[Rfam]
RNA sequence: AAAAGAAAGCAGAAGCACCCGCUUCUCACCUCGUCUGACAAAAAAGUUGGCAGGUUGACAUGGUAAACAAUAAAGCUGUUUAGUCGGCUUUUUACUGGCGGGGCAUCUACUUCAGAUGCUCCGCCUUUUUCAUGCAGG
Numbered sequence: 001a002a003a004a005g006a007a008a009g010c011a012g013a014a015g016c017a018c019c020c021g022c023u024u025c026u027c028a029c030c031u032c033g034u035c036u037g038a039c040a041a042a043a044a045a046g047u048u049g050g051c052a053g054g055u056u057g058a059c060a061u062g063g064u065a066a067a068c069a070a071u072a073a074a075g076c077u078g079u080u081u082a083g084u085c086g087g088c089u090u091u092u093u094a095c096u097g098g099c100g101g102g103g104c105a106u107c108u109a110c111u112u113c114a115g116a117u118g119c120u121c122c123g124c125c126u127u128u129u130u131c132a133u134g135c136a137g138g
Stems, first nucleotide, its partner, number of pairs: 011026006028055003035050005097125012
Dot-bracket structure: ..........((((((....)))))).(((....(((((......)))))..))).........................................((((((((((((.....)))))))))))).............
The family of this 138-nucleotide sequence from Domibacillus iocasae is "Ribosomal protein L20 leader". The organism belongs to Domibacillus, within Bacteria. Rfam classes the family as a cis-regulatory leader. Its family is annotated with regulation of gene expression in the Gene Ontology.